[Rfam]
RNA sequence: GCGAUGAGCUGAAUUGUGUAAGCCGGAGAACAUGCGGAUUCCCGCACACAUGAAUGUGGCAUGUGGUUCUUCGCCUCAAUACGCAAGGAGACGACUGGUUUACCAGCGUC
Numbered sequence: 001g002c003g004a005u006g007a008g009c010u011g012a013a014u015u016g017u018g019u020a021a022g023c024c025g026g027a028g029a030a031c032a033u034g035c036g037g038a039u040u041c042c043c044g045c046a047c048a049c050a051u052g053a054a055u056g057u058g059g060c061a062u063g064u065g066g067u068u069c070u071u072c073g074c075c076u077c078a079a080u081a082c083g084c085a086a087g088g089a090g091a092c093g094a095c096u097g098g099u100u101u102a103c104c105a106g107c108g109u110c
Stems, first nucleotide, its partner, number of pairs: 014079003018075001024073008034045002047065002050062003090110004095106004